[Rfam]
The family of this 100-nucleotide RNA from Spiroplasma mirum is "Purine riboswitch aptamer". The family's consensus secondary structure is taken from published work. Lineage of the source: Bacteria > Bacillati > Mycoplasmatota > Spiroplasmataceae > Spiroplasma mirum.

RNA sequence: AAAUUAGCAAUCUGUAUAACCUGUAUGUGUUAGUAAUAUGGUCUAACGUCUCUACAACUAUCCAUUGUAAUUAGGUACUAUAGGUUAAUGUUUUUCCUUU
Numbered sequence: 001a002a003a004u005u006a007g008c009a010a011u012c013u014g015u016a017u018a019a020c021c022u023g024u025a026u027g028u029g030u031u032a033g034u035a036a037u038a039u040g041g042u043c044u045a046a047c048g049u050c051u052c053u054a055c056a057a058c059u060a061u062c063c064a065u066u067g068u069a070a071u072u073a074g075g076u077a078c079u080a081u082a083g084g085u086u087a088a089u090g091u092u093u094u095u096c097c098u099u100u
Stems, first nucleotide, its partner, number of pairs: 018086008029047005056076001058074003